Shown here is a 154-nucleotide RNA from Azorhizobium caulinodans, a member of the family "6S / SsrS RNA". The match comes from Rfam's covariance-model search (81 bits). Rfam 15.1 lists 5,006 matches to the family in 4,638 species. By type it is a non-coding RNA gene. For this family Rfam cites "6S RNA regulates E. coli RNA polymerase activity" (Wassarman and Storz, Cell, 2000). The family's consensus secondary structure is taken from published work.

RNA sequence: GCGGGGCUGCGGGGUUCGUUAGGAACUUUUCCCCGGGGCCUUAUCGAUCCUUAAGGGAGCUGUUCCUGACCUCGCCCCUGGGCUUGGACAAACGGCGCCCACCUACGUUGUAGGUUUCCCGGGAUCGACCUCCGACGGCUUUUGCGGCUCCGCA
Numbered sequence: 001g002c003g004g005g006g007c008u009g010c011g012g013g014g015u016u017c018g019u020u021a022g023g024a025a026c027u028u029u030u031c032c033c034c035g036g037g038g039c040c041u042u043a044u045c046g047a048u049c050c051u052u053a054a055g056g057g058a059g060c061u062g063u064u065c066c067u068g069a070c071c072u073c074g075c076c077c078c079u080g081g082g083c084u085u086g087g088a089c090a091a092a093c094g095g096c097g098c099c100c101a102c103c104u105a106c107g108u109u110g111u112a113g114g115u116u117u118c119c120c121g122g123g124a125u126c127g128a129c130c131u132c133c134g135a136c137g138g139c140u141u142u143u144g145c146g147g148c149u150c151c152g153c154a
Base pairs, nucleotide, nucleotide: 002152003151004150005149006148007147008146009145010144011143012141013140014139015138017137018136019135030124031123032122033121035119036118037117038115039114040113055100056099057098059096060095061094062093063092064091068089070087071086074083075082076081